[Rfam]
RNA sequence: GACAAUCUUCAGGGCAGGGUGUAAUUCCCUACUGGCGGUAUAGCCCGCGAGCUUUAAAUAAAAAGCAGAUUCGGUUUAACUCCGAGGCCAACAGUAUAGUCUGGAUGAAAGAAGAUAUAU
Numbered sequence: 001g002a003c004a005a006u007c008u009u010c011a012g013g014g015c016a017g018g019g020u021g022u023a024a025u026u027c028c029c030u031a032c033u034g035g036c037g038g039u040a041u042a043g044c045c046c047g048c049g050a051g052c053u054u055u056a057a058a059u060a061a062a063a064a065g066c067a068g069a070u071u072c073g074g075u076u077u078a079a080c081u082c083c084g085a086g087g088c089c090a091a092c093a094g095u096a097u098a099g100u101c102u103g104g105a106u107g108a109a110a111g112a113a114g115a116u117a118u119a120u
Base pairs, nucleotide, nucleotide: 005116006115007114008113009112010111017029018028019027031100032099033090034089035048036047037046038045043088044087051066052065053064070086071085072084073083074082092103093102094101